[Rfam]
RNA sequence: GUUAAUAUUGGGCAAACUUACCGAAAGGUAAGGACGCAAAGCCGUGGGUCUAAGGAAUUGUCUAUGACUGCCAGGUUGCGAAU
Numbered sequence: 001g002u003u004a005a006u007a008u009u010g011g012g013c014a015a016a017c018u019u020a021c022c023g024a025a026a027g028g029u030a031a032g033g034a035c036g037c038a039a040a041g042c043c044g045u046g047g048g049u050c051u052a053a054g055g056a057a058u059u060g061u062c063u064a065u066g067a068c069u070g071c072c073a074g075g076u077u078g079c080g081a082a083u
Stems, first nucleotide, its partner, number of pairs: 012037002017032006040077004045073003048068003055062002